[Rfam]
RNA sequence: CGUUAAUUCAGGAAGCUGCUGGACGCUGCACAAGAGAUUCUAUUUAACUCUUGUGCGUGUGACAGCGGCUAUUGUGGAUAUUCUAGUUCAACGG
Numbered sequence: 001c002g003u004u005a006a007u008u009c010a011g012g013a014a015g016c017u018g019c020u021g022g023a024c025g026c027u028g029c030a031c032a033a034g035a036g037a038u039u040c041u042a043u044u045u046a047a048c049u050c051u052u053g054u055g056c057g058u059g060u061g062a063c064a065g066c067g068g069c070u071a072u073u074g075u076g077g078a079u080a081u082u083c084u085a086g087u088u089c090a091a092c093g094g
Base pairs, nucleotide, nucleotide: 006079007078008077009076010075011073014070015069016068017067018066019065020064021063024059025058027057028056029055030054031053032052034050035049
This 94-nucleotide RNA sequence from Diabrotica virgifera belongs to the Rfam family "mir-210 microRNA precursor family".
The family's consensus secondary structure was predicted with WAR.
The organism belongs to Diabrotica virgifera, within Eukaryota.
The match comes from Rfam's covariance-model search (53 bits).
On this family, see Cai et al., Proc Natl Acad Sci U S A 2005: "Kaposi's sarcoma-associated herpesvirus expresses an array of viral microRNAs in latently infected cells".